[Rfam]
RNA sequence: UACUAUCAAACCCUAUUUUCACCUCCACGUGGUGACCGCUGGAAGCUCUCUUUUAACGAAAAGCUACAGACGGAGAAGG
Numbered sequence: 001u002a003c004u005a006u007c008a009a010a011c012c013c014u015a016u017u018u019u020c021a022c023c024u025c026c027a028c029g030u031g032g033u034g035a036c037c038g039c040u041g042g043a044a045g046c047u048c049u050c051u052u053u054u055a056a057c058g059a060a061a062a063g064c065u066a067c068a069g070a071c072g073g074a075g076a077a078g079g
Stems, first nucleotide, its partner, number of pairs: 012079003016075004021033003044065004049060001052058001
About this RNA:
The family of this 79-nucleotide RNA from Hermetia illucens is "drz-agam-1 ribozyme". Its family is annotated with catalytic activity in the Gene Ontology. The literature on the family includes a 2009 paper in Science by Webb et al., "Widespread occurrence of self-cleaving ribozymes". A search with the family's covariance model found it, with a score of 38 bits. The family's consensus secondary structure is taken from published work.